[Rfam]
RNA sequence: GAUUUCUGAACAGCUGGUGUAGCUACAGAGAAACCAACUUCCUUCAGAC
Numbered sequence: 001g002a003u004u005u006c007u008g009a010a011c012a013g014c015u016g017g018u019g020u021a022g023c024u025a026c027a028g029a030g031a032a033a034c035c036a037a038c039u040u041c042c043u044u045c046a047g048a049c
Stems, first nucleotide, its partner, number of pairs: 005048005012039002015036004019026002
RNA: MAT2A 3'UTR stem loop C